Rfam assigns this 224-nucleotide sequence from Streptomyces sp. B93 to the family "Streptomyces sRNA 4677".
It is annotated as a small RNA.
Rfam describes the family as follows. Located in the intergenic region between anti-sigma factor SCO4677 gene and a putative regulatory protein gene SCO4676. scr4677 expression requires the SCO4677 activity and scr4677 sRNA itself seem to affect the levels of the SCO4676-associated transcripts.
[Rfam]
RNA sequence: GGGGUGCGGGCGGUAAAAGGAGUUAAGAACUCCCUGGAAAGAACCCUCCCAACCCAACCAAACCUCCCGGACGUCACUCACGCGGGUGAACCCGGCCAACUUGGCUGGCGCGCUGGGGGAUUGGGCGGGCAGGCUCGCCGUGACAACCGCAGACAUGCAUCGGCCCUCGCCGGGACUGGCAUCCCAGUGCGAGGGCCUGACCAACGAGGAAGCAAGGACCUUCC
Numbered sequence: 001g002g003g004g005u006g007c008g009g010g011c012g013g014u015a016a017a018a019g020g021a022g023u024u025a026a027g028a029a030c031u032c033c034c035u036g037g038a039a040a041g042a043a044c045c046c047u048c049c050c051a052a053c054c055c056a057a058c059c060a061a062a063c064c065u066c067c068c069g070g071a072c073g074u075c076a077c078u079c080a081c082g083c084g085g086g087u088g089a090a091c092c093c094g095g096c097c098a099a100c101u102u103g104g105c106u107g108g109c110g111c112g113c114u115g116g117g118g119g120a121u122u123g124g125g126c127g128g129g130c131a132g133g134c135u136c137g138c139c140g141u142g143a144c145a146a147c148c149g150c151a152g153a154c155a156u157g158c159a160u161c162g163g164c165c166c167u168c169g170c171c172g173g174g175a176c177u178g179g180c181a182u183c184c185c186a187g188u189g190c191g192a193g194g195g196c197c198u199g200a201c202c203a204a205c206g207a208g209g210a211a212g213c214a215a216g217g218a219c220c221u222u223c224c
Base pairs, nucleotide, nucleotide: 003205005203006202012067013066015065074089075088076087077086078085079084104139106137107136108135162197163196164195165194166193168191169190170189172185173184174183175182208224209223210222211221212220